[Rfam]
The record is a 93-nucleotide RNA sequence from Theobroma cacao, which matches "Small nucleolar RNA snoR8a" in Rfam. A reference for the family is Brown et al. (2001), "Multiple snoRNA gene clusters from Arabidopsis", RNA. It scores 46 bits against the family's covariance model. It is annotated as a C/D-box small nucleolar RNA.

RNA sequence: AAGUUAGCUAUGAUUAUAAAAAUAAUUCUUCAUUUUGACUUGCUUAAUUUGAGUGUGACAAACCUCUUAUUACAUCCAUAGAAUCUGAGUUAC
Numbered sequence: 001a002a003g004u005u006a007g008c009u010a011u012g013a014u015u016a017u018a019a020a021a022a023u024a025a026u027u028c029u030u031c032a033u034u035u036u037g038a039c040u041u042g043c044u045u046a047a048u049u050u051g052a053g054u055g056u057g058a059c060a061a062a063c064c065u066c067u068u069a070u071u072a073c074a075u076c077c078a079u080a081g082a083a084u085c086u087g088a089g090u091u092a093c
Stems, first nucleotide, its partner, number of pairs: 003093002006091002